[Rfam]
RNA sequence: AGGCCCAGAGAGAGAAGCAGGGGCUGAUCCUCAGCCUCCAUGGCAGCUGUUGAUCAACCCUUGCCUCUCUCUCUCCUGGCC
Numbered sequence: 001a002g003g004c005c006c007a008g009a010g011a012g013a014g015a016a017g018c019a020g021g022g023g024c025u026g027a028u029c030c031u032c033a034g035c036c037u038c039c040a041u042g043g044c045a046g047c048u049g050u051u052g053a054u055c056a057a058c059c060c061u062u063g064c065c066u067c068u069c070u071c072u073c074u075c076c077u078g079g080c081c
Stems, first nucleotide, its partner, number of pairs: 008073008017064004022059001025056005032049004
Shown here is an 81-nucleotide sequence from Myotis brandtii, a member of the family "mir-574 microRNA precursor family". The base pairs follow the family's consensus structure, which was predicted with RNAalifold. It scores 80 bits against the family's covariance model. Its family is annotated with RISC complex and miRNA-mediated post-transcriptional gene silencing in the Gene Ontology.